Rfam assigns this 130-nucleotide sequence from Turnix velox to the family "Small nucleolar RNA SNORA44". On this family, see Huttenhofer et al., EMBO J 2001: "RNomics: an experimental approach that identifies 201 candidates for novel, small, non-messenger RNAs in mouse". Rfam classes the family as an H/ACA-box small nucleolar RNA. The base pairs follow the family's consensus structure, which was predicted with PFOLD. The organism belongs to Turnix, within Eukaryota. Rfam's curators write: ACA44 is a member of the H/ACA class of snoRNA that guide the sites of modification of uridines to pseudouridines.
RNA sequence: UUGCAUGUUUAUCCAAGAGCUUUGGCUGCUCUGAUAGCUCCAGCUCUCCAACAACAUGCCAGAGCAACUGGACGGUCUUUGACUGCUGGGUCUCGCUUGCCUCUUGCUGUCACUCACCCAUCCUAUAAAU
Numbered sequence: 001u002u003g004c005a006u007g008u009u010u011a012u013c014c015a016a017g018a019g020c021u022u023u024g025g026c027u028g029c030u031c032u033g034a035u036a037g038c039u040c041c042a043g044c045u046c047u048c049c050a051a052c053a054a055c056a057u058g059c060c061a062g063a064g065c066a067a068c069u070g071g072a073c074g075g076u077c078u079u080u081g082a083c084u085g086c087u088g089g090g091u092c093u094c095g096c097u098u099g100c101c102u103c104u105u106g107c108u109g110u111c112a113c114u115c116a117c118c119c120a121u122c123c124u125a126u127a128a129a130u
Stems, first nucleotide, its partner, number of pairs: 013043001018039004023034001024031001070123003074119002085110002088103001089101002